A member of the RNA family "Iron response element II" from Astyanax mexicanus, 31 nucleotides long.
RNA sequence: UAUAUAUCGGGGGCAGUGUCCCUCAUAUUUC
Numbered sequence: 001u002a003u004a005u006a007u008c009g010g011g012g013g014c015a016g017u018g019u020c021c022c023u024c025a026u027a028u029u030u031c
Base pairs, nucleotide, nucleotide: 002030004028005027006026007025009024010023011022012021013020014018
Dot-bracket structure: .(.((((.((((((...).))))))))).).

Source information
Taxonomically the source falls in Astyanax (Eukaryota, Bilateria, Clupeocephala, Acestrorhamphinae). Gene Ontology term of the family: response to iron ion. The family's RNA type in Rfam is cis-regulatory element. IRE, TFRC, SLC40A1, SDHB, SLC11A2, CDC42BPA, ACO2, ALAS2_H.SAPIENS, CDC14A, EPAS1, ALAS2, qoxD, Hao1, NDUFS1, transferrin, Aconitate.